This 67-nucleotide RNA sequence from Bacillus sp. FJAT-50079 belongs to the Rfam family "Bacillaceae-1 RNA". The match comes from Rfam's covariance-model search (58 bits). Lineage of the source: Bacteria > Bacillati > Caryophanales > Bacillaceae > Bacillus. The base pairs follow the family's consensus structure, which is taken from published work.
[Rfam]
RNA sequence: AUUGAAGGAGCAAAGGCUAAAUUCGCCGCGUCAUGGAGCAACGCCUUUGUGACUUGCAUCGUGCAAA
Numbered sequence: 001a002u003u004g005a006a007g008g009a010g011c012a013a014a015g016g017c018u019a020a021a022u023u024c025g026c027c028g029c030g031u032c033a034u035g036g037a038g039c040a041a042c043g044c045c046u047u048u049g050u051g052a053c054u055u056g057c058a059u060c061g062u063g064c065a066a067a
Stems, first nucleotide, its partner, number of pairs: 011049007025039002029035001054066004